[Rfam]
RNA sequence: UGGCGCCCAAUGUGGGGCUGGAUACUGGGGGACUACAUUAGGGUCUGACGACGAAGAUAAGAAGGGUUGCUUACCCGAUCAAGCAAUAGUUAGGAGACGUCGCAGUAGCCUGCUGUGACUGAGCCCACAGGUAAGUUGGUCGUUCAAUCAUGGGGCAAGAAUUGAGUCAGCAUCAGAAAUAUGUAAUACAGUUAAAAGAAGGUUUACAGGCAAGAGGAGUAAAGGUUACAACUGAGGAUUUAUUUCAUUUCUUUGAUUUUGUGAAAGACAUCUGCCCAU
Numbered sequence: 001u002g003g004c005g006c007c008c009a010a011u012g013u014g015g016g017g018c019u020g021g022a023u024a025c026u027g028g029g030g031g032a033c034u035a036c037a038u039u040a041g042g043g044u045c046u047g048a049c050g051a052c053g054a055a056g057a058u059a060a061g062a063a064g065g066g067u068u069g070c071u072u073a074c075c076c077g078a079u080c081a082a083g084c085a086a087u088a089g090u091u092a093g094g095a096g097a098c099g100u101c102g103c104a105g106u107a108g109c110c111u112g113c114u115g116u117g118a119c120u121g122a123g124c125c126c127a128c129a130g131g132u133a134a135g136u137u138g139g140u141c142g143u144u145c146a147a148u149c150a151u152g153g154g155g156c157a158a159g160a161a162u163u164g165a166g167u168c169a170g171c172a173u174c175a176g177a178a179a180u181a182u183g184u185a186a187u188a189c190a191g192u193u194a195a196a197a198g199a200a201g202g203u204u205u206a207c208a209g210g211c212a213a214g215a216g217g218a219g220u221a222a223a224g225g226u227u228a229c230a231a232c233u234g235a236g237g238a239u240u241u242a243u244u245u246c247a248u249u250u251c252u253u254u255g256a257u258u259u260u261g262u263g264a265a266a267g268a269c270a271u272c273u274g275c276c277c278a279u
Stems, first nucleotide, its partner, number of pairs: 006030003012025003036050001038048001091131001093128001098123001101117005136158003141155001143154004163206003167201001214254006223241005264279001267276001269274001
RNA: Mason-Pfizer monkey virus packaging signal
Organism: Nannospalax galili